A member of the RNA family "c-di-GMP-I riboswitch aptamer", 76 nucleotides long.
A search with the family's covariance model found it, with a score of 53 bits.
The base pairs follow the family's consensus structure, which is taken from published work.
RNA sequence: GCGCGUUAAAGCCAAACUACCCGCGAGAGUAGGACGGAAAACUACGGGUCUCUAGCUAGAUUGCCGAGUUGCAUUG
Numbered sequence: 001g002c003g004c005g006u007u008a009a010a011g012c013c014a015a016a017c018u019a020c021c022c023g024c025g026a027g028a029g030u031a032g033g034a035c036g037g038a039a040a041a042c043u044a045c046g047g048g049u050c051u052c053u054a055g056c057u058a059g060a061u062u063g064c065c066g067a068g069u070u071g072c073a074u075u076g
Base pairs, nucleotide, nucleotide: 012037013036017032018031019030020029022027040070041069042068043067045066046065047064048061049060050059